[Rfam]
RNA sequence: UUUUGCCACUAGGGGUGUCCUUUACAAGGACUGAGAUGCAUAUGGAUAUGCGGACUCUUAUUACCUGAUCUGGUUCAUACCAGCGGAGGGAAGUGGGACUGCGUAUUU
Numbered sequence: 001u002u003u004u005g006c007c008a009c010u011a012g013g014g015g016u017g018u019c020c021u022u023u024a025c026a027a028g029g030a031c032u033g034a035g036a037u038g039c040a041u042a043u044g045g046a047u048a049u050g051c052g053g054a055c056u057c058u059u060a061u062u063a064c065c066u067g068a069u070c071u072g073g074u075u076c077a078u079a080c081c082a083g084c085g086g087a088g089g090g091a092a093g094u095g096g097g098a099c100u101g102c103g104u105a106u107u108u
Base pairs, nucleotide, nucleotide: 006096007095008094009093010092011058012057013056014055016052017031018030019029020028021027038051039050040049041048042047064089065088066087070083071082072081073080
RNA: TPP riboswitch aptamer (THI element)
Organism: Sporosarcina sp. Marseille-Q4063